[Rfam]
RNA sequence: UGAGAGAACUCGGGAGAAGGAACUCGGCAAAUUGGUACCGUAACUUCGGGAUAAGGUACGCCUUGGUAGCUUGACUGAUUUACUUCAGAAGGGCGAAGAGGUUGCAAUAAACUGGUGGCUGCGACUGUUUAAUAAAAACACAGCACUCUGCAAACACGAAAGUGGACGUAUAGGGUGUGACGCCUGCCCGGUGCUGGAAGAUUAAAUGAUGGGGUGCAAGCUCUUGAUUGAAGUCCCAGUAAACGGCGGCCGUAACUAUAACGGUCCUAAGGUAGCGAAAUUCCUUGUCGGGUAAGUUCCGACCUGCACGAAUGGCGUAACGAUGGCCACACUGUCUCCUCCCGAGACUCA
Numbered sequence: 001u002g003a004g005a006g007a008a009c010u011c012g013g014g015a016g017a018a019g020g021a022a023c024u025c026g027g028c029a030a031a032u033u034g035g036u037a038c039c040g041u042a043a044c045u046u047c048g049g050g051a052u053a054a055g056g057u058a059c060g061c062c063u064u065g066g067u068a069g070c071u072u073g074a075c076u077g078a079u080u081u082a083c084u085u086c087a088g089a090a091g092g093g094c095g096a097a098g099a100g101g102u103u104g105c106a107a108u109a110a111a112c113u114g115g116u117g118g119c120u121g122c123g124a125c126u127g128u129u130u131a132a133u134a135a136a137a138a139c140a141c142a143g144c145a146c147u148c149u150g151c152a153a154a155c156a157c158g159a160a161a162g163u164g165g166a167c168g169u170a171u172a173g174g175g176u177g178u179g180a181c182g183c184c185u186g187c188c189c190g191g192u193g194c195u196g197g198a199a200g201a202u203u204a205a206a207u208g209a210u211g212g213g214g215u216g217c218a219a220g221c222u223c224u225u226g227a228u229u230g231a232a233g234u235c236c237c238a239g240u241a242a243a244c245g246g247c248g249g250c251c252g253u254a255a256c257u258a259u260a261a262c263g264g265u266c267c268u269a270a271g272g273u274a275g276c277g278a279a280a281u282u283c284c285u286u287g288u289c290g291g292g293u294a295a296g297u298u299c300c301g302a303c304c305u306g307c308a309c310g311a312a313u314g315g316c317g318u319a320a321c322g323a324u325g326g327c328c329a330c331a332c333u334g335u336c337u338c339c340u341c342c343c344g345a346g347a348c349u350c351a
Base pairs, nucleotide, nucleotide: 001351002350003349004348009346010345011344012343013342014341015340016339018337019336020335035059036058037057038056039055044049060102061101062100063099064098075088076087077086078085103107115330116329117328118327119326120325121324122322123321126140127139128138143178144177145176146175147174148173149172150171151168155164156163157162181317182316183315184314186247187246188245191244192243193240194239195238196237197236200235201234202233206229211224212223213222214221215220248266249265250264251263252262253261267271277304287303288302289301290300291299292298
This 351-nucleotide part of an RNA belongs to the Rfam family "Bacterial large subunit ribosomal RNA". It scores 2790 bits against the family's covariance model. For this family Rfam cites "Crystal structure of the ribosome at 5.5 A resolution" (Yusupov et al., Science, 2001). Gene Ontology terms of the family: ribosome and structural constituent of ribosome. Pairs were carried over by alignment from the consensus structure, which is taken from published work.